[Rfam]
RNA sequence: UGCGCAGGGCGUGUUUGACAACGAUCUCGCGGAAUUUCACCCCCUUGAGGCGGGCGGUGCGGAUGUACUGCGCGGUCAUCACUUCGGUCAUGCUGGCCCGCGUCAUGCGCGCGAUGUAGCCCAUGCCGUACAGUGAAAUUGUCAGGACCGGCAGAAAGAAGUUUUCAAAGGUGGCGUUC
Number, nucleotide and partner (000 for none) at each position: 001u000002g000003c000004g000005c000006a139007g000008g000009g000010c135011g134012u133013g000014u000015u130016u128017g127018a000019c000020a000021a124022c000023g000024a000025u000026c000027u000028c000029g122030c000031g120032g000033a000034a000035u000036u000037u000038c113039a000040c111041c000042c109043c000044c000045u000046u105047g104048a103049g000050g101051c100052g099053g098054g097055c075056g000057g073058u072059g071060c070061g069062g068063a000064u000065g000066u000067a000068c062069u061070g060071c059072g058073c057074g000075g055076u000077c000078a000079u000080c000081a000082c096083u095084u000085c000086g000087g000088u000089c000090a000091u000092g000093c000094u000095g083096g082097c054098c053099c052100g051101c050102g000103u048104c047105a046106u000107g000108c000109g042110c000111g040112c000113g038114a000115u000116g000117u000118a000119g000120c031121c000122c029123a000124u021125g000126c000127c017128g016129u000130a015131c000132a000133g012134u011135g010136a000137a000138a000139u006140u000141g000142u000143c000144a000145g179146g178147a177148c000149c174150g000151g172152c171153a000154g165155a164156a163157a162158g000159a000160a000161g000162u157163u156164u155165u154166c000167a000168a000169a000170g000171g152172u151173g000174g149175c000176g000177u147178u146179c145
Shown here is a 179-nucleotide sequence, a member of the family "Ruegeria cis52 sRNA".
Rfam 15.1 lists 277 matches to the family in 275 species.
Pairs were carried over by alignment from the consensus structure, which was predicted with RNAfold.
Gene Ontology term of the family: regulation of gene expression.